[Rfam]
RNA sequence: UGCAUCGCUGAUGAUGUUUUGGCUCCCUCUACUGAACUCUAUGAGGAAGCACGCCAUUGUUACCCAAUUUUCGUCUGAGAUGUG
Numbered sequence: 001u002g003c004a005u006c007g008c009u010g011a012u013g014a015u016g017u018u019u020u021g022g023c024u025c026c027c028u029c030u031a032c033u034g035a036a037c038u039c040u041a042u043g044a045g046g047a048a049g050c051a052c053g054c055c056a057u058u059g060u061u062a063c064c065c066a067a068u069u070u071u072c073g074u075c076u077g078a079g080a081u082g083u084g
Stems, first nucleotide, its partner, number of pairs: 001084006
Dot-bracket structure: ((((((........................................................................))))))
The family of this 84-nucleotide RNA from Scophthalmus maximus is "Small nucleolar RNA SNORD100".
Gene Ontology terms of the family: nucleolus and RNA processing.
The literature on the family includes a 2002 paper in Mol Cell Biol by Galardi et al., "Purified box C/D snoRNPs are able to reproduce site-specific 2'-O-methylation of target RNA in vitro".
The family's consensus secondary structure was predicted with RNAalifold.
A search with the family's covariance model found it, with a score of 67 bits.
By type it is a C/D-box small nucleolar RNA.